epsC RNA: a 110-nucleotide sequence from Ornithinibacillus caprae. By type it is a cis-regulatory element. The match comes from Rfam's covariance-model search (105 bits).
RNA sequence: AGGUGAUGUCUCUUUACCUUUAUCAAUAGGGGCACUCGGCUAUGCUGUGGGUUGAAGGACCUUAGACACCUGUUGUCAUUAGUGUGGUGUGAGGUGGGGUUAGAUGCCCU
Numbered sequence: 001a002g003g004u005g006a007u008g009u010c011u012c013u014u015u016a017c018c019u020u021u022a023u024c025a026a027u028a029g030g031g032g033c034a035c036u037c038g039g040c041u042a043u044g045c046u047g048u049g050g051g052u053u054g055a056a057g058g059a060c061c062u063u064a065g066a067c068a069c070c071u072g073u074u075g076u077c078a079u080u081a082g083u084g085u086g087g088u089g090u091g092a093g094g095u096g097g098g099g100u101u102a103g104a105u106g107c108c109c110u
Base pairs, nucleotide, nucleotide: 001019002018003017004016007034008033009032010031011030012029013028035093036092037091038090039088040087041086042085043084044083045082046081049062050061051060052059053058065077066076067075068074096110097109098108099107100106